[Rfam]
RNA sequence: AAAAAGAAAACCUGCAGAAUGUUCUGCAGGUCUUUUUGCUUUCUGCUCGAAAACAAAAAGGCAAAGGGAGAGGAGAAACCGGAGGAGAACUUAUGGGGAAAUGUAAGUCUUCUCCGUGU
Numbered sequence: 001a002a003a004a005a006g007a008a009a010a011c012c013u014g015c016a017g018a019a020u021g022u023u024c025u026g027c028a029g030g031u032c033u034u035u036u037u038g039c040u041u042u043c044u045g046c047u048c049g050a051a052a053a054c055a056a057a058a059a060g061g062c063a064a065a066g067g068g069a070g071a072g073g074a075g076a077a078a079c080c081g082g083a084g085g086a087g088a089a090c091u092u093a094u095g096g097g098g099a100a101a102u103g104u105a106a107g108u109c110u111u112c113u114c115c116g117u118g119u
Base pairs, nucleotide, nucleotide: 010031011030012029013028014027015026016025017024018023032068033067034066035065036064041056042055044053080116081115082114083113084112085111086110087109089108090107091106092105093104
RNA: ylbH leader